[Rfam]
RNA sequence: GGCUCUAUAGCUCAAUGGUGGAGCAAGCGACUCAUAAUCGCCAGGUUACAGGUUCGAAUCCUGUUGGAGCCA
Numbered sequence: 001g002g003c004u005c006u007a008u009a010g011c012u013c014a015a016u017g018g019u020g021g022a023g024c025a026a027g028c029g030a031c032u033c034a035u036a037a038u039c040g041c042c043a044g045g046u047u048a049c050a051g052g053u054u055c056g057a058a059u060c061c062u063g064u065u066g067g068a069g070c071c072a
Base pairs, nucleotide, nucleotide: 001071002070003069004068005067006066007065010024011023012022013021027041028040029039030038048064049063050062051061052060
RNA: tRNA